RNA sequence: CGUCGUGCUCCGGGGUGUCCACGCAAAGUGGGCUGAGACGGCGCUGCGUGCAGGCGCCGAACCCGUCGAACUUGAUCCGGGUCAUGCCGGCGAAAGGACGAGCCAGCCCACAGGCG
Dot-bracket structure: ......((((((((.((((((.......)))))......(((((.........))))))..)))).....(((...((((......))))...)))...)))).............
Numbered sequence: 001c002g003u004c005g006u007g008c009u010c011c012g013g014g015g016u017g018u019c020c021a022c023g024c025a026a027a028g029u030g031g032g033c034u035g036a037g038a039c040g041g042c043g044c045u046g047c048g049u050g051c052a053g054g055c056g057c058c059g060a061a062c063c064c065g066u067c068g069a070a071c072u073u074g075a076u077c078c079g080g081g082u083c084a085u086g087c088c089g090g091c092g093a094a095a096g097g098a099c100g101a102g103c104c105a106g107c108c109c110a111c112a113g114g115c116g
Stems, first nucleotide, its partner, number of pairs: 007103004011065004016059001017033005040058005071096003077090004
Shown here is a 116-nucleotide RNA sequence from Tepidimonas alkaliphilus, a member of the family "TPP riboswitch aptamer (THI element)". NCBI's taxonomy places the organism under Bacteria, Pseudomonadati, Pseudomonadota, Burkholderiales, Tepidimonas. Its family is annotated with thiamine pyrophosphate binding in the Gene Ontology. Rfam describes the family as follows. Vitamin B(1) in its active form thiamin pyrophosphate (TPP) is an essential coenzyme that is synthesised by coupling of pyrimidine and thiazole moieties in bacteria. The family's consensus secondary structure is taken from published work.